Notes
This 133-nucleotide RNA sequence from Hemiprocne comata belongs to the Rfam family "Small nucleolar RNA SNORA41". From the family's description: ACA41 is a member of the H/ACA class of snoRNA that guide the sites of modification of uridines to pseudouridines. The source organism's lineage runs through Eukaryota, Sarcopterygii, Archosauria, Strisores and Hemiprocne.

RNA sequence: CUCCACAGCUACUGGUCUGGAACUGUUCAUGACUGUAGCAGUUGCAGUAUUCCAUCUGUGGAAAAUAAACAGUUACACAGCGUUAAGAUCCUUCUCAGAUCCUCUGAAAAGGACUUCUAUGUAACAUACAUUG
Numbered sequence: 001c002u003c004c005a006c007a008g009c010u011a012c013u014g015g016u017c018u019g020g021a022a023c024u025g026u027u028c029a030u031g032a033c034u035g036u037a038g039c040a041g042u043u044g045c046a047g048u049a050u051u052c053c054a055u056c057u058g059u060g061g062a063a064a065a066u067a068a069a070c071a072g073u074u075a076c077a078c079a080g081c082g083u084u085a086a087g088a089u090c091c092u093u094c095u096c097a098g099a100u101c102c103u104c105u106g107a108a109a110a111g112g113a114c115u116u117c118u119a120u121g122u123a124a125c126a127u128a129c130a131u132u133g
Stems, first nucleotide, its partner, number of pairs: 003061004017047003021043005075122003079118001089113005095107003
Rfam links the family to the GO terms nucleolus and RNA processing.
By type it is an H/ACA-box small nucleolar RNA.